[Rfam]
RNA sequence: UCAUGGCACGAACCGGUACUAAAGGUUAGACCUUUAGUACCGGUUCGUGGCACGAACCGGUACUAAAGGUAACCUUUAGUACCGGUUCGUGCCACGAA
Numbered sequence: 001u002c003a004u005g006g007c008a009c010g011a012a013c014c015g016g017u018a019c020u021a022a023a024g025g026u027u028a029g030a031c032c033u034u035u036a037g038u039a040c041c042g043g044u045u046c047g048u049g050g051c052a053c054g055a056a057c058c059g060g061u062a063c064u065a066a067a068g069g070u071a072a073c074c075u076u077u078a079g080u081a082c083c084g085g086u087u088c089g090u091g092c093c094a095c096g097a098a
Stems, first nucleotide, its partner, number of pairs: 004094024031069002036064003040060002047053002
MIR5387 microRNA precursor family: a 98-nucleotide RNA sequence from Triticum turgidum. The family's consensus secondary structure was predicted with RNAalifold. Rfam 15.1 lists 1,029 matches to the family in 9 species. Its family is annotated with miRNA-mediated post-transcriptional gene silencing and RISC complex in the Gene Ontology.